[Rfam]
RNA sequence: UGCACAGCACGGUAUCUGCACUCAGCAGUUUAUUCCUGCUGAGGUGUUCAAAGGUCAAUGCCAUAGAAAUUCAGUAUCUGGAAUUGGUUUUCUUGGCUUUCUGCAUGUUAAACCUGGUAUUUCUAUAGUUUUCUCA
Numbered sequence: 001u002g003c004a005c006a007g008c009a010c011g012g013u014a015u016c017u018g019c020a021c022u023c024a025g026c027a028g029u030u031u032a033u034u035c036c037u038g039c040u041g042a043g044g045u046g047u048u049c050a051a052a053g054g055u056c057a058a059u060g061c062c063a064u065a066g067a068a069a070u071u072c073a074g075u076a077u078c079u080g081g082a083a084u085u086g087g088u089u090u091u092c093u094u095g096g097c098u099u100u101c102u103g104c105a106u107g108u109u110a111a112a113c114c115u116g117g118u119a120u121u122u123c124u125a126u127a128g129u130u131u132u133c134u135c136a
Base pairs, nucleotide, nucleotide: 002061003060004059007056014055015054016053017052018047019046020045021044022043024040025039026038027037028036064125065124066123067122068121069120070119071117072116073115074114081104
This 136-nucleotide RNA sequence from Propithecus coquereli belongs to the Rfam family "Small nucleolar RNA SNORA8". The source organism's lineage runs through Eukaryota, Sarcopterygii, Tetrapoda, Strepsirrhini and Propithecus. ACA8 is a member of the H/ACA class of snoRNA that guide the sites of modification of uridines to pseudouridines. Gene Ontology terms of the family: nucleolus and RNA processing.